[Rfam]
Group II catalytic intron D1-D4-1: a 91-nucleotide RNA sequence from Fuerstiella marisgermanici. Group II introns are found in rRNA, tRNA and mRNA of organelles in fungi, plants and protists, and also in mRNA in bacteria.
RNA sequence: AGCGAUUCGUGGUCAACACGUUUCGUGAUCGACGGAAGUCAGCAGAGGUCGUAGUACUGUUUCGUCACACACCACUGACGACAGGAAGGAC
Numbered sequence: 001a002g003c004g005a006u007u008c009g010u011g012g013u014c015a016a017c018a019c020g021u022u023u024c025g026u027g028a029u030c031g032a033c034g035g036a037a038g039u040c041a042g043c044a045g046a047g048g049u050c051g052u053a054g055u056a057c058u059g060u061u062u063c064g065u066c067a068c069a070c071a072c073c074a075c076u077g078a079c080g081a082c083a084g085g086a087a088g089g090a091c
Stems, first nucleotide, its partner, number of pairs: 001026001004024002008020004039046002048091003057084003064079003